[Rfam]
RNA sequence: AGUUUCUGAGGACGGAACUGGUAGCCGUAGCCCAUCAAAAGAUGUAGGAGAUGUGGGAGUACCACCCCACCUAAACU
Numbered sequence: 001a002g003u004u005u006c007u008g009a010g011g012a013c014g015g016a017a018c019u020g021g022u023a024g025c026c027g028u029a030g031c032c033c034a035u036c037a038a039a040a041g042a043u044g045u046a047g048g049a050g051a052u053g054u055g056g057g058a059g060u061a062c063c064a065c066c067c068c069a070c071c072u073a074a075a076c077u
Stems, first nucleotide, its partner, number of pairs: 001077005008071001012028004019064005031048001033044004053070005
Dot-bracket structure: (((((..(...((((...[[[[[.))))..(.((((....))))...)....(((((..]]]]].)))))).)))))